Source information: The family of this 173-nucleotide sequence from Butyrivibrio sp. Su6 is "Lysine riboswitch aptamer". It scores 108 bits against the family's covariance model.

RNA sequence: GGUUUAGAUAGAGGUUGCGUAUUUAAUGAGUAUUUCUGUGGAUGUGUCAGGCACAGAUGAAUCAGGAAAAAAGGUAAAUACGCCGAAAGGUUCAAUUACCUGAGGAUUGGAUACUUGGGCAUGCAGUAAACAGCUGUAUGACUGUCAUCGAAAGAUGGGGCGCUAUCAACAAU
Number, nucleotide and partner (000 for none) at each position: 001g000002g000003u000004u000005u000006a000007g167008a166009u165010a164011g163012a000013g000014g000015u000016u000017g083018c082019g081020u080021a079022u078023u077024u076025a075026a000027u000028g000029a000030g000031u000032a000033u068034u067035u066036c065037u064038g063039u000040g000041g000042a000043u000044g000045u000046g000047u000048c000049a000050g000051g000052c000053a000054c000055a000056g000057a000058u000059g000060a000061a000062u000063c038064a037065g036066g035067a034068a033069a000070a000071a000072a000073g000074g000075u025076a024077a023078a022079u021080a020081c019082g018083c017084c000085g000086a000087a116088a115089g114090g112091u111092u110093c109094a108095a107096u106097u105098a000099c000100c000101u000102g000103a000104g000105g097106a096107u095108u094109g093110g092111a091112u090113a000114c089115u088116u087117g143118g142119g000120c140121a139122u138123g137124c136125a135126g134127u133128a000129a000130a000131c000132a000133g127134c126135u125136g124137u123138a122139u121140g120141a000142c118143u117144g000145u158146c157147a156148u155149c154150g000151a000152a000153a000154g149155a148156u147157g146158g145159g000160g000161c000162g000163c011164u010165a009166u008167c007168a000169a000170c000171a000172a000173u000